[Rfam]
RNA sequence: AGUUACGAUCAGUUUUGCAGGGUUGCAGUCAGUUUGUACAUCUCUGCCACUGUGCAAACCCAUGCAAAACUGACUGUGGCU
Numbered sequence: 001a002g003u004u005a006c007g008a009u010c011a012g013u014u015u016u017g018c019a020g021g022g023u024u025g026c027a028g029u030c031a032g033u034u035u036g037u038a039c040a041u042c043u044c045u046g047c048c049a050c051u052g053u054g055c056a057a058a059c060c061c062a063u064g065c066a067a068a069a070c071u072g073a074c075u076g077u078g079g080c081u
Stems, first nucleotide, its partner, number of pairs: 003079005009073011020061002023057005031051003
Rfam assigns this 81-nucleotide sequence from Polypterus senegalus to the family "mir-19 microRNA precursor family". Gene Ontology terms of the family: RISC complex and miRNA-mediated post-transcriptional gene silencing. A search with the family's covariance model found it, with a score of 67 bits. Rfam 15.1 lists 2,337 matches to the family in 651 species.